[Rfam]
PrrF RNA: a 141-nucleotide RNA from Pseudomonas sp. URIL14HWK12:I9.
On this family, see Wilderman et al., Proc Natl Acad Sci U S A 2004: "Identification of tandem duplicate regulatory small RNAs in Pseudomonas aeruginosa involved in iron homeostasis".
It scores 137 bits against the family's covariance model.
By type it is a small RNA.
About the family: PrrF RNA is a small RNA involved in iron homeostasis and is found exclusively in Pseudomonas species.

RNA sequence: UUGACCUACAAAUGAGAAUCGUUAUGAUUAUCACAACUGGUCGCGAGGCCAGCCGAUAAUCUGGCGCCGAAGGGUCUCAGCUUAUCUCCUCAUCAGGCUAAUCACGGUUAUUGACCCGGCUUUUUGCCGGGUCUUUUUUUG
Numbered sequence: 001u002u003g004a005c006c007u008a009c010a011a012a013u014g015a016g017a018a019u020c021g022u023u024a025u026g027a028u029u030a031u032c033a034c035a036a037c038u039g040g041u042c043g044c045g046a047g048g049c050c051a052g053c054c055g056a057u058a059a060u061c062u063g064g065c066g067c068c069g070a071a072g073g074g075u076c077u078c079a080g081c082u083u084a085u086c087u088c089c090u091c092a093u094c095a096g097g098c099u100a101a102u103c104a105c106g107g108u109u110a111u112u113g114a115c116c117c118g119g120c121u122u123u124u125u126g127c128c129g130g131g132u133c134u135u136u137u138u139u140u141g
Stems, first nucleotide, its partner, number of pairs: 034055001037052006061080004066075002088097003113133008